[Rfam]
RNA sequence: AAUUAAGAAGGGCAUUUAACUAAAUUGUGCGCCUGACAUAUGUCGAAGCACUAAAACAGGAGAAA
Numbered sequence: 001a002a003u004u005a006a007g008a009a010g011g012g013c014a015u016u017u018a019a020c021u022a023a024a025u026u027g028u029g030c031g032c033c034u035g036a037c038a039u040a041u042g043u044c045g046a047a048g049c050a051c052u053a054a055a056a057c058a059g060g061a062g063a064a065a
Base pairs, nucleotide, nucleotide: 010034011033012032013031025054026053027051028050029049030048036043037042